[Rfam]
RNA: mir-399 microRNA precursor family
RNA sequence: AAGUGAAUUAGUGAGCAUGUCUCCUUUUCUGGCAGGACAGAUACAUGGAAGCGAGUCCACUCAAUUUUAUUUCAUUCUAUUCUGUUCUGCCAAAGAAGAUUUGCUCAUCGAUUCAUUU
Numbered sequence: 001a002a003g004u005g006a007a008u009u010a011g012u013g014a015g016c017a018u019g020u021c022u023c024c025u026u027u028u029c030u031g032g033c034a035g036g037a038c039a040g041a042u043a044c045a046u047g048g049a050a051g052c053g054a055g056u057c058c059a060c061u062c063a064a065u066u067u068u069a070u071u072u073c074a075u076u077c078u079a080u081u082c083u084g085u086u087c088u089g090c091c092a093a094a095g096a097a098g099a100u101u102u103g104c105u106c107a108u109c110g111a112u113u114c115a116u117u118u
Base pairs, nucleotide, nucleotide: 005114006113007112008111009110011108012107013106014105015104016103017102019100024098025097026096027095030092031091032090033089034088035087036086037085038084